[Rfam]
RNA: mir-367 microRNA precursor family
RNA sequence: CCGUCACUGUUGCUAACAUGCAACUCUGUUGAGUAUAAAUUGGAAUUGCACUUUAGCAAUGGUGAUGG
Numbered sequence: 001c002c003g004u005c006a007c008u009g010u011u012g013c014u015a016a017c018a019u020g021c022a023a024c025u026c027u028g029u030u031g032a033g034u035a036u037a038a039a040u041u042g043g044a045a046u047u048g049c050a051c052u053u054u055a056g057c058a059a060u061g062g063u064g065a066u067g068g
Base pairs, nucleotide, nucleotide: 005064006063007062008061009060010059011058012057013056014055015054016053019050020049021048022047023046025044026043027042028041